[Rfam]
RNA sequence: GCGCAGGCCAGACCAGUGGUUACUUCGAACCGCAGAUUCACACCGAUCCACUGCCGCAGUCCUGCGUUUUU
Numbered sequence: 001g002c003g004c005a006g007g008c009c010a011g012a013c014c015a016g017u018g019g020u021u022a023c024u025u026c027g028a029a030c031c032g033c034a035g036a037u038u039c040a041c042a043c044c045g046a047u048c049c050a051c052u053g054c055c056g057c058a059g060u061c062c063u064g065c066g067u068u069u070u071u
Stems, first nucleotide, its partner, number of pairs: 002066006011055001013053001016051004025046003
RNA: Vault RNA
Organism: Trichonephila clavipes